Shown here is a 137-nucleotide RNA sequence from Enterobacter sp. 638, a member of the family "Enterobacteria sRNA STnc130". Lineage of the source: Bacteria > Pseudomonadati > Enterobacterales > Enterobacteriaceae > Enterobacter. Rfam classes the family as a small RNA. Pairs were carried over by alignment from the consensus structure, which was predicted with WAR. It is one of the family's seed sequences.
[Rfam]
RNA sequence: UAUAGAGAAACAGUUAUUCAGACACAUAACGUGCUGGGUUUCAUUCAAAGGAGUAUUACUACUUUAGGAGGAGCAGACAUUGCCUGGAGUCAAAGCAGAGGCAUAAAAAAAGCGCCCUCAGGCGCUUUUUAUUUUUA
Numbered sequence: 001u002a003u004a005g006a007g008a009a010a011c012a013g014u015u016a017u018u019c020a021g022a023c024a025c026a027u028a029a030c031g032u033g034c035u036g037g038g039u040u041u042c043a044u045u046c047a048a049a050g051g052a053g054u055a056u057u058a059c060u061a062c063u064u065u066a067g068g069a070g071g072a073g074c075a076g077a078c079a080u081u082g083c084c085u086g087g088a089g090u091c092a093a094a095g096c097a098g099a100g101g102c103a104u105a106a107a108a109a110a111a112g113c114g115c116c117c118u119c120a121g122g123c124g125c126u127u128u129u130u131a132u133u134u135u136u137a
Base pairs, nucleotide, nucleotide: 060069109128111126112125113124114123115122116121